[Rfam]
RNA sequence: ACAGCGUCUCGCGACUGGCGUGCCGAGGGUGGGAACGACCACCGGGGAGCGAAGAGCCGACGAGCACCGCGCGCCUGGGUGCCCGGC
Numbered sequence: 001a002c003a004g005c006g007u008c009u010c011g012c013g014a015c016u017g018g019c020g021u022g023c024c025g026a027g028g029g030u031g032g033g034a035a036c037g038a039c040c041a042c043c044g045g046g047g048a049g050c051g052a053a054g055a056g057c058c059g060a061c062g063a064g065c066a067c068c069g070c071g072c073g074c075c076u077g078g079g080u081g082c083c084c085g086g087c
Base pairs, nucleotide, nucleotide: 004057005056007054009052010051011050012049015046016045017075018074019073020072021071029042030041031040032039064082065081066080067079068078
RNA: ZMP/ZTP riboswitch aptamer (pfl RNA motif)